[Rfam]
The record is a 64-nucleotide RNA sequence from Myotis brandtii, which matches "U7 small nuclear RNA" in Rfam.
Taxonomically the source falls in Myotis (Eukaryota, Bilateria, Tetrapoda, Theria).
RNA sequence: AAGUGCUUACAGCACUUUCUUAAUUUGCCUAGUAUGUCUUCUGGUUUUAUACCAAAAGGUCCUC
Numbered sequence: 001a002a003g004u005g006c007u008u009a010c011a012g013c014a015c016u017u018u019c020u021u022a023a024u025u026u027g028c029c030u031a032g033u034a035u036g037u038c039u040u041c042u043g044g045u046u047u048u049a050u051a052c053c054a055a056a057a058g059g060u061c062c063u064c
Base pairs, nucleotide, nucleotide: 036060037059038058039057040056042054043053044052045051